[Rfam]
RNA sequence: AGAUGUCUUCAGGGCAGGGUGAAAUUCCCGAUUGGCGGUACAGUCCGCGCGCGUGAUACGCAUGAUUUGGUGCAAUUCCAAAACCAACAGUGACAGUCUGGAUGAAAGAAGAUACCA
Numbered sequence: 001a002g003a004u005g006u007c008u009u010c011a012g013g014g015c016a017g018g019g020u021g022a023a024a025u026u027c028c029c030g031a032u033u034g035g036c037g038g039u040a041c042a043g044u045c046c047g048c049g050c051g052c053g054u055g056a057u058a059c060g061c062a063u064g065a066u067u068u069g070g071u072g073c074a075a076u077u078c079c080a081a082a083a084c085c086a087a088c089a090g091u092g093a094c095a096g097u098c099u100g101g102a103u104g105a106a107a108g109a110a111g112a113u114a115c116c117a
Base pairs, nucleotide, nucleotide: 004114005113006112007111008110009109010108017029018028019027031097032096033086034085035048036047037046038045043084044083066082067081068080069079070078088100089099090098
RNA: FMN riboswitch aptamer (RFN element)
Organism: Flavonifractor plautii